The record is an 83-nucleotide RNA from Bdellovibrio bacteriovorus, which matches "tRNA" in Rfam. Taxonomically the source falls in Bdellovibrio (Bacteria, Pseudomonadati, Bdellovibrionota, Bdellovibrionia). It is annotated as a transfer RNA. Rfam links the family to the GO term triplet codon-amino acid adaptor activity. It scores 56 bits against the family's covariance model.

RNA sequence: GCGGGUGUGGUGUAAUGGUAGCCACGAGAGACUCAAAAUCUCUUGGAUUCACGUCCGUGGGGGUUCAAGUCCCUCCACCCGCA
Numbered sequence: 001g002c003g004g005g006u007g008u009g010g011u012g013u014a015a016u017g018g019u020a021g022c023c024a025c026g027a028g029a030g031a032c033u034c035a036a037a038a039u040c041u042c043u044u045g046g047a048u049u050c051a052c053g054u055c056c057g058u059g060g061g062g063g064u065u066c067a068a069g070u071c072c073c074u075c076c077a078c079c080c081g082c083a
Stems, first nucleotide, its partner, number of pairs: 001082007010025003027043005059075005